Nucleotides: 214
Base pairs, nucleotide, nucleotide: 001138002137003136004135005134015128016127017126018125027117028116029115031114032113033112037053038052039051040050041049054099055098056097057096058095059094060093139154140153141152142151
Number, partner (000 for none) and nucleotide at each position: 001138g002137g003136c004135g005134a006000u007000a008000a009000a010000u011000u012000g013000c014000g015128c016127c017126g018125u019000g020000u021000a022000a023000u024000a025000g026000g027117u028116a029115c030000a031114g032113c033112g034000g035000a036000c037053c038052c039051g040050g041049g042000g043000g044000c045000a046000g047000u048000a049041c050040c051039c052038g053037g054099c055098g056097g057096c058095u059094c060093c061000a062000c063000c064000a065000g066000a067000a068000u069000c070000g071000g072000c073000g074000g075000u076000u077000u078000u079000c080000c081000g082000c083000c084000a085000g086000u087000c088000c089000u090000g091000a092000c093060g094059g095058g096057g097056c098055c099054g100000a101000a102000c103000c104000a105000g106000g107000a108000u109000c110000g111000a112033c113032g114031u115029g116028u117027g118000c119000u120000g121000a122000a123000a124000g125018a126017c127016g128015g129000c130000g131000u132000u133000u134005u135004u136003g137002c138001u139154c140153g141152g142151g143000c144000u145000g146000a147000g148000u149000a150000a151142c152141c153140c154139g155000u156000a157000a158000a159000a160000c161000u162000g163000u164000u165000c166000a167000c168000a169000a170000c171000a172000c173000a174000c175000a176000a177000g178000u179000g180000c181000c182000a183000a184000c185000g186000a187000u188000a189000a190000c191000g192000a193000a194000g195000c196000a197000c198000u199000c200000g201000c202000a203000a204000u205000c206000g207000c208000u209000g210000c211000g212000u213000a214000a
permuted transfer-messenger RNA: a 214-nucleotide RNA sequence from Aurantiacibacter zhengii.
From the family's description: Bacterial tmRNA, also known as 10Sa RNA or SsrA, is named for its dual tRNA and mRNA-like properties.
The source organism's lineage runs through Bacteria, Pseudomonadati, Alphaproteobacteria, Erythrobacteraceae and Aurantiacibacter.